[Rfam]
RNA sequence: AAUUCCCCAAAAAAAUUUUUUUUCCCCAAAAAAGGGGGUUUUUUUGGGGGGGGGGGGGCCCGGGGGGGCCCCCCCCCAAAAAAAGGGGGUUUUUUGGGGGAAAAAAAAAAGGGGGCCCCUUUUGGGGGGCCCCUUUUUA
Numbered sequence: 001a002a003u004u005c006c007c008c009a010a011a012a013a014a015a016u017u018u019u020u021u022u023u024c025c026c027c028a029a030a031a032a033a034g035g036g037g038g039u040u041u042u043u044u045u046g047g048g049g050g051g052g053g054g055g056g057g058g059c060c061c062g063g064g065g066g067g068g069c070c071c072c073c074c075c076c077c078a079a080a081a082a083a084a085g086g087g088g089g090u091u092u093u094u095u096g097g098g099g100g101a102a103a104a105a106a107a108a109a110a111g112g113g114g115g116c117c118c119c120u121u122u123u124g125g126g127g128g129g130c131c132c133c134u135u136u137u138u139a
Base pairs, nucleotide, nucleotide: 006048007047008046009045010044011043012042013041014040015039016038017037018036019035020034021033022032023031059100060099061098063071064070065069072089073088074087075086076085107138108137109136110135111134112133113132114131115130116129117128118127119126
RNA: sraL Hfq binding RNA